[Rfam]
RNA sequence: UUUCUAAGAAUUCAUUUUUCAUGAUUGCUUGAAGCAAUGUAAAAAACACAUUUCACUGGCUCUGAAAAAA
Numbered sequence: 001u002u003u004c005u006a007a008g009a010a011u012u013c014a015u016u017u018u019u020c021a022u023g024a025u026u027g028c029u030u031g032a033a034g035c036a037a038u039g040u041a042a043a044a045a046a047c048a049c050a051u052u053u054c055a056c057u058g059g060c061u062c063u064g065a066a067a068a069a070a
Stems, first nucleotide, its partner, number of pairs: 001070003005066001
RNA: Small nucleolar RNA SNORD102
Organism: Nannospalax galili